[Rfam]
RNA sequence: AAGUUGAAUGUAAGAAUUGGAGGAUAUUGAACCUGUUUGAUUCUAAUUGUGUACACAUAGGUUCAAUUUUCUCCAAUAUCUUAUAUUCAGCCU
Number, nucleotide and partner (000 for none) at each position: 001a000002a000003g000004u090005u089006g088007a087008a086009u000010g000011u083012a082013a081014g080015a000016a077017u076018u075019g074020g073021a072022g000023g070024a069025u000026a067027u066028u065029g064030a063031a000032c061033c060034u000035g000036u000037u000038u000039g000040a000041u000042u000043c000044u000045a000046a000047u000048u000049g000050u000051g000052u000053a000054c000055a000056c000057a000058u000059a000060g033061g032062u000063u030064c029065a028066a027067u026068u000069u024070u023071c000072u021073c020074c019075a018076a017077u016078a000079u000080c014081u013082u012083a011084u000085a000086u008087u007088c006089a005090g004091c000092c000093u000
Rfam assigns this 93-nucleotide RNA sequence from Aquilegia coerulea to the family "MIR2275 microRNA precursor family". Pairs were carried over by alignment from the consensus structure, which was predicted with RNAalifold. Gene Ontology terms of the family: RISC complex and miRNA-mediated post-transcriptional gene silencing. The family has 13 seed sequences and 785 matches in Rfam 15.1. It scores 67 bits against the family's covariance model.